Shown here is a 138-nucleotide RNA sequence from Trichechus manatus, a member of the family "Small nucleolar RNA SNORA47". The family's consensus secondary structure was predicted with WAR. Gene Ontology terms of the family: RNA processing and nucleolus. A search with the family's covariance model found it, with a score of 148 bits. The family's RNA type in Rfam is H/ACA-box small nucleolar RNA. NCBI's taxonomy places the organism under Eukaryota, Vertebrata, Dipnotetrapodomorpha, Trichechidae, Trichechus manatus.
RNA sequence: UGGAGGACUGAGAAAGUGAGGCAGUUCUGUACCAUGCUGCCAUCCACUGGUUAAGACCUCCCAGAGCGUAGAGCUGCCAGGGCAGAGGAUGUCCCUCUGCCGCCCUCAGAGGGGCAGCGCUGUGCUGGCUGACAUUUG
Number, nucleotide and partner (000 for none) at each position: 001u000002g061003g060004a059005g058006g057007a000008c000009u000010g000011a000012g000013a000014a000015a048016g047017u046018g045019a000020g041021g040022c039023a038024g037025u036026u000027c000028u000029g000030u000031a000032c000033c000034a000035u000036g025037c024038u023039g022040c021041c020042a000043u000044c000045c018046a017047c016048u015049g000050g000051u000052u000053a000054a000055g000056a000057c006058c005059u004060c003061c002062c000063a000064g000065a000066g000067c000068g000069u000070a000071g000072a000073g000074c000075u000076g000077c000078c000079a000080g000081g130082g129083c128084a000085g000086a126087g125088g000089a123090u122091g121092u000093c000094c000095c000096u000097c117098u116099g115100c114101c113102g000103c112104c111105c000106u000107c000108a000109g000110a000111g104112g103113g101114g100115c099116a098117g097118c000119g000120c000121u091122g090123u089124g000125c087126u086127g000128g083129c082130u081131g000132a000133c000134a000135u000136u000137u000138g000